[Rfam]
RNA sequence: CAAGACGAUCCGGUACGGGUAACUUUCUUUUCGCAUAAUUCAGGUCAUUCACCUUGAAUAAUUGAGGGAUGACCUCAUUUAAUCUCCAGUAGCAAUUUUGACCUGUUAUGGGAGGAGUUAUGCGUCUGGAUCGUCUUAC
Numbered sequence: 001c002a003a004g005a006c007g008a009u010c011c012g013g014u015a016c017g018g019g020u021a022a023c024u025u026u027c028u029u030u031u032c033g034c035a036u037a038a039u040u041c042a043g044g045u046c047a048u049u050c051a052c053c054u055u056g057a058a059u060a061a062u063u064g065a066g067g068g069a070u071g072a073c074c075u076c077a078u079u080u081a082a083u084c085u086c087c088a089g090u091a092g093c094a095a096u097u098u099u100g101a102c103c104u105g106u107u108a109u110g111g112g113a114g115g116a117g118u119u120a121u122g123c124g125u126c127u128g129g130a131u132c133g134u135c136u137u138a139c
Stems, first nucleotide, its partner, number of pairs: 002137011015125003019121001021119003024043002029038002052067006068079004083115005089109003

The record is a 139-nucleotide RNA from Salmonella enterica, which matches "Yersinia sRNA 155(RyfD)" in Rfam. Rfam's curators put it in the seed alignment. The family's RNA type in Rfam is small RNA. The sRNA was identified by and is confirmed to have a stable secondary structure by using genome-wide structure probing at different temperatures. The function is unknown.